This 77-nucleotide RNA sequence from Oenanthe oenanthe belongs to the Rfam family "mir-96 microRNA precursor family". The literature on the family includes a 2003 paper in Dev Cell by Houbaviy et al., "Embryonic stem cell-specific MicroRNAs".

RNA sequence: UGGCCCGUUUUGGCACUAGCACAUUUUUGCUUUGGUUGGAGCUUUUGAGCAAUUAUGUGUAGUGCCAAUAUGGGAGA
Number, nucleotide and partner (000 for none) at each position: 001u000002g000003g000004c074005c073006c072007g071008u070009u000010u068011u067012g066013g065014c064015a063016c062017u061018a000019g060020c059021a058022c057023a056024u055025u000026u000027u052028u051029g050030c049031u048032u047033u000034g000035g000036u000037u000038g000039g000040a000041g000042c000043u000044u000045u000046u000047g032048a031049g030050c029051a028052a027053u000054u000055a024056u023057g022058u021059g020060u019061a017062g016063u015064g014065c013066c012067a011068a010069u000070a008071u007072g006073g005074g004075a000076g000077a000